RNA sequence: GAACCUUAAAAAGGUACAGUAAAAGUAACAAGAGUGAGGCAAUCGCUAGUGAAUGGAAACCCCAUGUCAUGAGGCAAUUGUCUACUCUUGCACAGAAUGGAAUCAUGUUGUAACUACAGUGCAAGAAGGUAGGUACAAUCCAUUUAAUUGAUAGCUAUGUUUUAGUAAAGUGUGUAGCUAUAGAGAGUAAGUUAAAGGUUAACACCGCUGCAUAAUUGGCCCUUGCAUGUGAUUAACGCCCCCUGGGAAGAGCUCUAUAGUGUGUAAUGUAAAUAAGAAUAGCUAUAAUUCAAUUAAUUCGGCUUAUUAGAUGAUUUGC
Numbered sequence: 001g002a003a004c005c006u007u008a009a010a011a012a013g014g015u016a017c018a019g020u021a022a023a024a025g026u027a028a029c030a031a032g033a034g035u036g037a038g039g040c041a042a043u044c045g046c047u048a049g050u051g052a053a054u055g056g057a058a059a060c061c062c063c064a065u066g067u068c069a070u071g072a073g074g075c076a077a078u079u080g081u082c083u084a085c086u087c088u089u090g091c092a093c094a095g096a097a098u099g100g101a102a103u104c105a106u107g108u109u110g111u112a113a114c115u116a117c118a119g120u121g122c123a124a125g126a127a128g129g130u131a132g133g134u135a136c137a138a139u140c141c142a143u144u145u146a147a148u149u150g151a152u153a154g155c156u157a158u159g160u161u162u163u164a165g166u167a168a169a170g171u172g173u174g175u176a177g178c179u180a181u182a183g184a185g186a187g188u189a190a191g192u193u194a195a196a197g198g199u200u201a202a203c204a205c206c207g208c209u210g211c212a213u214a215a216u217u218g219g220c221c222c223u224u225g226c227a228u229g230u231g232a233u234u235a236a237c238g239c240c241c242c243c244u245g246g247g248a249a250g251a252g253c254u255c256u257a258u259a260g261u262g263u264g265u266a267a268u269g270u271a272a273a274u275a276a277g278a279a280u281a282g283c284u285a286u287a288a289u290u291c292a293a294u295u296a297a298u299u300c301g302g303c304u305u306a307u308u309a310g311a312u313g314a315u316u317u318g319c
Base pairs, nucleotide, nucleotide: 029090030089031088032087033086035084038082039081040080041079042078043077045075046074049070050069051068052067054064055063100317101316102315103314104313105312106311108138109137110136111135112134114132115131116130117129142298143297145296146295147294148293149292150291151290152285153284154283155282156281157280158279162276163275164274178260179259180258181257182256183255184254185253198237199236200235201234202233203231204230205229239247240246241245303310304309
Rfam assigns this 319-nucleotide sequence from Betacoronavirus erinacei to the family "Betacoronavirus 3'UTR".
The 3' UTR of betacoronaviruses is approximately 300-500 nucleotides long. The most 5' structure is the bulged stem-loop (BSL), starting downstream of the N gene stop codon and is essential for viral replication. It is predicted to be conserved among betacoronaviruses.
Gene Ontology term of the family: viral RNA genome replication.
Pairs were carried over by alignment from the consensus structure.
A reference for the family is Goebel et al. (2004), "The 3' cis-acting genomic replication element of the severe acute respiratory syndrome coronavirus can function in the murine coronavirus genome", J Virol.
Rfam classes the family as a cis-regulatory element.
Its Rfam clan is "Coronavirus 3' UTR".
The source organism's lineage runs through Viruses, Nidovirales, Cornidovirineae, Orthocoronavirinae and Hedgehog coronavirus 1.